[Rfam]
RNA sequence: CCAAAAGCUAUUGGGUCUGUCUUGGUAGUGAGACCUAACGCUGUUGGGUCUGGCUGUCAAGUUAGGCCCAAAACACUUCCAAAAAAAGCCAACAGCGUUGGGCC
Numbered sequence: 001c002c003a004a005a006a007g008c009u010a011u012u013g014g015g016u017c018u019g020u021c022u023u024g025g026u027a028g029u030g031a032g033a034c035c036u037a038a039c040g041c042u043g044u045u046g047g048g049u050c051u052g053g054c055u056g057u058c059a060a061g062u063u064a065g066g067c068c069c070a071a072a073a074c075a076c077u078u079c080c081a082a083a084a085a086a087a088g089c090c091a092a093c094a095g096c097g098u099u100g101g102g103c104c
Stems, first nucleotide, its partner, number of pairs: 001102002004099002007096003011092004016088001018086001020084001022082004027077003031051009055070002